About this RNA: The record is a 395-nucleotide RNA sequence from Thermobispora bispora, which matches "Bacterial RNase P class A" in Rfam. It is annotated as a ribozyme.

RNA sequence: CGAGCCGGCCGGGCGGCCGCGUCAGGGCGCAAGCCCUGCCGAGGAAGGUCCGGGCUCCACAGGGCAGGGUGGUCGGUAACGCCGACCCGGGGUGACCCGCGGGAAAGUGCCACAGAAAGCAGACCGCCUCGCUCCGCAAGGAGCGGGGUAAGGGUGAAAGGGUGGUGUAAGAGACCACCAGCGCUCACGGUGACGUGAGCGGCUAGGUAAACCCCACCCGGAGCAAGGUCAAGAAGGGACGUUCUUCGGAGCGUCCCGCGCGCGGCGCUUGAGGGUGGCCCGCCCGAGCCGCGCGGGUAGACCGCUAGAGGCCGUCGGCAACGGCGGUCCGAGAUGGAUGGCCGCCGGUCAGCGCGAGCUGACUACAGAACCCGGCCUAUAGGCCGACUCGUCUG
Numbered sequence: 001c002g003a004g005c006c007g008g009c010c011g012g013g014c015g016g017c018c019g020c021g022u023c024a025g026g027g028c029g030c031a032a033g034c035c036c037u038g039c040c041g042a043g044g045a046a047g048g049u050c051c052g053g054g055c056u057c058c059a060c061a062g063g064g065c066a067g068g069g070u071g072g073u074c075g076g077u078a079a080c081g082c083c084g085a086c087c088c089g090g091g092g093u094g095a096c097c098c099g100c101g102g103g104a105a106a107g108u109g110c111c112a113c114a115g116a117a118a119g120c121a122g123a124c125c126g127c128c129u130c131g132c133u134c135c136g137c138a139a140g141g142a143g144c145g146g147g148g149u150a151a152g153g154g155u156g157a158a159a160g161g162g163u164g165g166u167g168u169a170a171g172a173g174a175c176c177a178c179c180a181g182c183g184c185u186c187a188c189g190g191u192g193a194c195g196u197g198a199g200c201g202g203c204u205a206g207g208u209a210a211a212c213c214c215c216a217c218c219c220g221g222a223g224c225a226a227g228g229u230c231a232a233g234a235a236g237g238g239a240c241g242u243u244c245u246u247c248g249g250a251g252c253g254u255c256c257c258g259c260g261c262g263c264g265g266c267g268c269u270u271g272a273g274g275g276u277g278g279c280c281c282g283c284c285c286g287a288g289c290c291g292c293g294c295g296g297g298u299a300g301a302c303c304g305c306u307a308g309a310g311g312c313c314g315u316c317g318g319c320a321a322c323g324g325c326g327g328u329c330c331g332a333g334a335u336g337g338a339u340g341g342c343c344g345c346c347g348g349u350c351a352g353c354g355c356g357a358g359c360u361g362a363c364u365a366c367a368g369a370a371c372c373c374g375g376c377c378u379a380u381a382g383g384c385c386g387a388c389u390c391g392u393c394u395g
Base pairs, nucleotide, nucleotide: 001391002390003389004388006386007385008384009383010382011380012346013345014344015343016342017341018340020041021040023038024037025036026035027034028033046378047377048376050375051374052373053372054371055223056222057221058220062281063280064279065278067219068218069217070216071215072086073085074084075083076082087101088099089098090097091096102214103213107212108211109208110207111206124153125152126149127148128147129146130145131144132143133142134141161179162178163177164176165175166174181203182201183200184199185198186197187196188195189194227303228302229301230300237294240291241290273285274284275283276282310329311328312327313326314325315324316323317322